[Rfam]
RNA sequence: AUACCCAGAAAAGCAAUGGACAGGGUCCUCUAGUCCGUCGCUUUUCUGGGUUUUC
Numbered sequence: 001a002u003a004c005c006c007a008g009a010a011a012a013g014c015a016a017u018g019g020a021c022a023g024g025g026u027c028c029u030c031u032a033g034u035c036c037g038u039c040g041c042u043u044u045u046c047u048g049g050g051u052u053u054u055c
Stems, first nucleotide, its partner, number of pairs: 001053001003051012016038006

A member of the RNA family "MIR8008 microRNA precursor family" from Solanum commersonii, 55 nucleotides long. The organism belongs to Solanum, within Eukaryota. A search with the family's covariance model found it, with a score of 69 bits.